[Rfam]
RNA sequence: CUUCAACCCACGGGGUGUCCUGGCGCUGUCCGGGCUGAGAGGCGGAUCGGGGCCGUUCCCAGUCCGCAAACCCGCGAACCUGAUCCGGCUCAUACCGGCGGAGGAAUAGGGACAUGCACUGCU
Numbered sequence: 001c002u003u004c005a006a007c008c009c010a011c012g013g014g015g016u017g018u019c020c021u022g023g024c025g026c027u028g029u030c031c032g033g034g035c036u037g038a039g040a041g042g043c044g045g046a047u048c049g050g051g052g053c054c055g056u057u058c059c060c061a062g063u064c065c066g067c068a069a070a071c072c073c074g075c076g077a078a079c080c081u082g083a084u085c086c087g088g089c090u091c092a093u094a095c096c097g098g099c100g101g102a103g104g105a106a107u108a109g110g111g112a113c114a115u116g117c118a119c120u121g122c123u
Stems, first nucleotide, its partner, number of pairs: 007110002010107001011074004016068001017035004042067005079104003085098004
RNA: TPP riboswitch aptamer (THI element)